The family of this 83-nucleotide RNA from Chanos chanos is "S10-Clostridia ribosomal protein leader". Taxonomically the source falls in Chanos (Eukaryota, Actinopterygii, Actinopteri, Chanoidei). The family's consensus secondary structure is taken from published work. A search with the family's covariance model found it, with a score of 36 bits. By type it is a cis-regulatory leader. For this family Rfam cites "Discovery of 20 novel ribosomal leader candidates in bacteria and archaea" (Eckert and Weinberg, BMC Microbiol, 2020).

[Rfam]
RNA sequence: AAGAAGCUCAGAUUCAUGAGGUAGCUGUGACUGACGCGCAGGGAUUUUGUGGAGAGUGCAUUUCUUUUUGAUAAAGAAAAUGA
Numbered sequence: 001a002a003g004a005a006g007c008u009c010a011g012a013u014u015c016a017u018g019a020g021g022u023a024g025c026u027g028u029g030a031c032u033g034a035c036g037c038g039c040a041g042g043g044a045u046u047u048u049g050u051g052g053a054g055a056g057u058g059c060a061u062u063u064c065u066u067u068u069u070g071a072u073a074a075a076g077a078a079a080a081u082g083a
Stems, first nucleotide, its partner, number of pairs: 015049002018047003025041005059082004065078004